[Rfam]
RNA sequence: GGUCGAUGAUGAAAGAAUAAGAAGGCUUGUUUCUCAAAACAUUCGCAGUGGCCGCCUAAGGGCUUUCGCCUUUCGCCAGGCUUGAGAGCCAAAUGCUGUUCUUUAUCCUUCCUUGGAUGUCUGAGACU
Numbered sequence: 001g002g003u004c005g006a007u008g009a010u011g012a013a014a015g016a017a018u019a020a021g022a023a024g025g026c027u028u029g030u031u032u033c034u035c036a037a038a039a040c041a042u043u044c045g046c047a048g049u050g051g052c053c054g055c056c057u058a059a060g061g062g063c064u065u066u067c068g069c070c071u072u073u074c075g076c077c078a079g080g081c082u083u084g085a086g087a088g089c090c091a092a093a094u095g096c097u098g099u100u101c102u103u104u105a106u107c108c109u110u111c112c113u114u115g116g117a118u119g120u121c122u123g124a125g126a127c128u
Stems, first nucleotide, its partner, number of pairs: 001128004062089006

The record is a 128-nucleotide RNA from Capsella rubella, which matches "Small nucleolar RNA SNORD14" in Rfam.
The match comes from Rfam's covariance-model search (81 bits).
NCBI's taxonomy places the organism under Eukaryota, Viridiplantae, Pentapetalae, Brassicaceae, Capsella.
On this family, see Samarsky et al., Nucleic Acids Res 1996: "An essential domain in Saccharomyces cerevisiae U14 snoRNA is absent in vertebrates, but conserved in other yeasts".